RNA sequence: GUAUCUCGAACGCUCCACUCCUCCUCCCAGGAUCGUUCGAAGGAAUGGCGGCAUCCUCCUCCCAGCCGCCGUUCGGUUCUUAUCGGAAAGCCUGCCGCACCUCCUCCCGCGGCAGGCUUUUUCG
Numbered sequence: 001g002u003a004u005c006u007c008g009a010a011c012g013c014u015c016c017a018c019u020c021c022u023c024c025u026c027c028c029a030g031g032a033u034c035g036u037u038c039g040a041a042g043g044a045a046u047g048g049c050g051g052c053a054u055c056c057u058c059c060u061c062c063c064a065g066c067c068g069c070c071g072u073u074c075g076g077u078u079c080u081u082a083u084c085g086g087a088a089a090g091c092c093u094g095c096c097g098c099a100c101c102u103c104c105u106c107c108c109g110c111g112g113c114a115g116g117c118u119u120u121u122u123c124g
Base pairs, nucleotide, nucleotide: 007039008038010036011035012034014032015031016030043074044073045072046071047070048069049068050067051066052065088119089118090117091116092115093114094113095112096111097110098109
The record is a 124-nucleotide RNA sequence from Rhizobium sp. Leaf371, which matches "Alphaproteobacterial ar14" in Rfam. For this family Rfam cites "A conserved alpha-proteobacterial small RNA contributes to osmoadaptation and symbiotic efficiency of rhizobia on legume roots" (Robledo et al., Environ Microbiol, 2017). It scores 104 bits against the family's covariance model. The pairing is the family consensus, mapped onto this sequence. Smr14C2 was renamed NfeR1 (Nodule Formation Efficiency RNA) highly expressed in salt stress and during the symbiotic interaction on legume roots.